[Rfam]
Background: The family of this 160-nucleotide sequence from Serratia symbiotica is "Glm Y RNA activator of glmS mRNA". The match comes from Rfam's covariance-model search (140 bits). For this family Rfam cites "Computational identification of noncoding RNAs in E. coli by comparative genomics" (Rivas et al., Curr Biol, 2001). Rfam describes the family as follows. This family consists of a number of bacterial RNA genes of around 167 bases in length. The tke1 RNA gene is present in Escherichia coli, Shigella flexneri, Yersinia pestis and Salmonella species where it is found between the yfhK and purL genes. The function of this RNA is unknown. The base pairs follow the family's consensus structure, which is taken from published work.
RNA sequence: UGUUGCUCAUUCAUCUUUUUAUGAUGGUUGCCUAUUUAAAGCCUCAUAAGCCUCCGAAUGAUGCCAAAGAAAGGGUGCCUAUCGUCCAACCAAACCGAUAACAGCUCACGCAAGUGACUUUAUCAAGCAUUGGGCGACACGUGGAGUGAGGCACCGCCUA
Numbered sequence: 001u002g003u004u005g006c007u008c009a010u011u012c013a014u015c016u017u018u019u020u021a022u023g024a025u026g027g028u029u030g031c032c033u034a035u036u037u038a039a040a041g042c043c044u045c046a047u048a049a050g051c052c053u054c055c056g057a058a059u060g061a062u063g064c065c066a067a068a069g070a071a072a073g074g075g076u077g078c079c080u081a082u083c084g085u086c087c088a089a090c091c092a093a094a095c096c097g098a099u100a101a102c103a104g105c106u107c108a109c110g111c112a113a114g115u116g117a118c119u120u121u122a123u124c125a126a127g128c129a130u131u132g133g134g135c136g137a138c139a140c141g142u143g144g145a146g147u148g149a150g151g152c153a154c155c156g157c158c159u160a
Base pairs, nucleotide, nucleotide: 005064006063007061008060009059010058011057012056019049020048021047022046023045024044026043027042028041074155075154076153077152078151079150080149083136084135085134086133087132097124098123099122100121101120138148139147140146